[Rfam]
RNA sequence: UUGCCCAAUGAUUAUAGCAAGACGCGUUAUUAUGAGGACUAAUGCUGGAACUCUUUCUCCUUCUCCUCCUCCUUCUUUGUCCCUUCCUCUUUCACCUUACCCUCACUUCCCUUAAGGGUAUCCAGCGUCCUAUGAGCAAGACUGAGAUAUGAGGGCAA
Numbered sequence: 001u002u003g004c005c006c007a008a009u010g011a012u013u014a015u016a017g018c019a020a021g022a023c024g025c026g027u028u029a030u031u032a033u034g035a036g037g038a039c040u041a042a043u044g045c046u047g048g049a050a051c052u053c054u055u056u057c058u059c060c061u062u063c064u065c066c067u068c069c070u071c072c073u074u075c076u077u078u079g080u081c082c083c084u085u086c087c088u089c090u091u092u093c094a095c096c097u098u099a100c101c102c103u104c105a106c107u108u109c110c111c112u113u114a115a116g117g118g119u120a121u122c123c124a125g126c127g128u129c130c131u132a133u134g135a136g137c138a139a140g141a142c143u144g145a146g147a148u149a150u151g152a153g154g155g156c157a158a
Base pairs, nucleotide, nucleotide: 001158002157003156004155005154006153035054036053037052040049
The family of this 158-nucleotide RNA from Ceuthmochares aereus is "Small nucleolar RNA SNORD97".
The family's consensus secondary structure was predicted with WAR.